[Rfam]
RNA: Small nucleolar RNA SNORA79
RNA sequence: UGAUGGCUGUUCCUCUUGCUGUCUGGAGCUGUGGGCAGUGGGAUUUUAGUCCAUCACAGAGAAAAGUGGCCUGUCUUCACUCGGGGCACCAUGAGAUGGGUCGGCCAUCUAUUCGUGCCUCCGAACUUUGCGGGGUCAGACAAGC
Numbered sequence: 001u002g003a004u005g006g007c008u009g010u011u012c013c014u015c016u017u018g019c020u021g022u023c024u025g026g027a028g029c030u031g032u033g034g035g036c037a038g039u040g041g042g043a044u045u046u047u048a049g050u051c052c053a054u055c056a057c058a059g060a061g062a063a064a065a066g067u068g069g070c071c072u073g074u075c076u077u078c079a080c081u082c083g084g085g086g087c088a089c090c091a092u093g094a095g096a097u098g099g100g101u102c103g104g105c106c107a108u109c110u111a112u113u114c115g116u117g118c119c120u121c122c123g124a125a126c127u128u129u130g131c132g133g134g135g136u137c138a139g140a141c142a143a144g145c
Base pairs, nucleotide, nucleotide: 001056002055003054004053005052006051008049014043015042016041017040018039020037021036022035023034068137069136070135071134072133081124082123083122084121085120086118087117088116089115094110095109096108097107098106